[Rfam]
RNA sequence: AGGGCAGGCCUUUACAGGCAUCCUCUCCCAAGACUUUCAAGGCCCGGUCCUCGCGACCGGGCCUUUUUUCUUUGCAGC
Numbered sequence: 001a002g003g004g005c006a007g008g009c010c011u012u013u014a015c016a017g018g019c020a021u022c023c024u025c026u027c028c029c030a031a032g033a034c035u036u037u038c039a040a041g042g043c044c045c046g047g048u049c050c051u052c053g054c055g056a057c058c059g060g061g062c063c064u065u066u067u068u069u070c071u072u073u074g075c076a077g078c
Stems, first nucleotide, its partner, number of pairs: 008019004041063009